[Rfam]
RNA sequence: GGCUGGUCCGAGUGCAAUGGUGUUUACACCUAAUUGAUCACAACCAGUUACAGAUUCCUUUGUCCCUUCUCCAUUCCCACUGUUUCACUUGACUAGCCUUAA
Numbered sequence: 001g002g003c004u005g006g007u008c009c010g011a012g013u014g015c016a017a018u019g020g021u022g023u024u025u026a027c028a029c030c031u032a033a034u035u036g037a038u039c040a041c042a043a044c045c046a047g048u049u050a051c052a053g054a055u056u057c058c059u060u061u062g063u064c065c066c067u068u069c070u071c072c073a074u075u076c077c078c079a080c081u082g083u084u085u086c087a088c089u090u091g092a093c094u095a096g097c098c099u100u101a102a
Base pairs, nucleotide, nucleotide: 001098002097003096004095005094006093007092008091010090011089014086016081018079019078020077022076033063034062036060037059
RNA: Y RNA
Organism: Prolemur simus